This 340-nucleotide sequence from Insolitispirillum peregrinum belongs to the Rfam family "Alphaproteobacteria transfer-messenger RNA".
Rfam's curators write: Bacterial tmRNA, also known as 10Sa RNA or SsrA, is named for its dual tRNA and mRNA-like properties.
Clan: tRNA clan.
Rfam classes the family as a non-coding RNA gene.

[Rfam]
RNA sequence: ACACUUGCGCUGUCAGAGGAACGCCUUAUAUUUGGCCCUGUCAGGGUUCGCCCUGUCUAUGAUGCUAAACUCUAGUCGAAAUAAUCGUUAUGGACCCGGGGGCAGUGCCCGGCGCCUCCACCACUCCAAGGUUCGUCACUCAAGGGAUUGCGAUCCCGACGGACGCUGUGGGGGCGAAACAGGAUCGACAUGCGUGGUAAAGGGCUAGACUGUAUCCGGCAUUGUACCGCCGUCAUCGGGCUAUAUUUACACAUGCCAACGACAACGUUGAGUAUGCCGCUGCCGCUUAAUAACCGGUAAGCGCGGUUCGGAGGGCACCGGGCAACAGAAGCCCUCCACU
Dot-bracket structure: .......................................(.(((((....))))).)...(((((.....(((((((........(((.(((...(((((.......)))))(((((((((..............................................)))))))))............))))))........)))))))..)))))((((.[.[..[[)))).....]].].]............................................................[[[[..((((((.]]]]...........))))))...
The literature on the family includes a 2003 paper in Nucleic Acids Res by Zwieb et al., "tmRDB (tmRNA database)".